RNA sequence: AAUUAAGACUCGGGGUGCAGUCCUUCUAUAUCCAGACCCUACCUAUAGUUAAUUUUAUAGCUAGGGUAAAUAUAGAAGCGUUUGCUGAGAGAUCACCCGUUGAACCUGAUGCGGUUAAUACCGUCGUAGGAAAGUCAUUGCAACUCCCU
Dot-bracket structure: ......((((((((..((((.............................................................))))..........)))).....((((..((((......))))..))))..)))).............